[Rfam]
RNA sequence: UUGCACGAUGCAACCCCGGGCUUUUCUUAUUUAUUCAUGACGUUGAAGCCCCAUUGCUCGUGCUACAUCAAUGCUAUUCGUGUUGCAGAUCAUUCUCAGAAACUCUAUGUUUGAUUCUGUGUCAAAGUAAUAGCUACAUUG
Numbered sequence: 001u002u003g004c005a006c007g008a009u010g011c012a013a014c015c016c017c018g019g020g021c022u023u024u025u026c027u028u029a030u031u032u033a034u035u036c037a038u039g040a041c042g043u044u045g046a047a048g049c050c051c052c053a054u055u056g057c058u059c060g061u062g063c064u065a066c067a068u069c070a071a072u073g074c075u076a077u078u079c080g081u082g083u084u085g086c087a088g089a090u091c092a093u094u095c096u097c098a099g100a101a102a103c104u105c106u107a108u109g110u111u112u113g114a115u116u117c118u119g120u121g122u123c124a125a126a127g128u129a130a131u132a133g134c135u136a137c138a139u140u141g
Stems, first nucleotide, its partner, number of pairs: 003063006010057002018051005023045001026042001073134006081124002084121006091109002
The record is a 141-nucleotide RNA from Lathyrus oleraceus, which matches "small nucleolar RNA snoR134" in Rfam. The family's consensus secondary structure was predicted with RNAalifold. The match comes from Rfam's covariance-model search (97 bits). Taxonomically the source falls in Lathyrus (Eukaryota, Streptophytina, Fabales, Hologalegina). Rfam links the family to the GO terms RNA processing and nucleolus.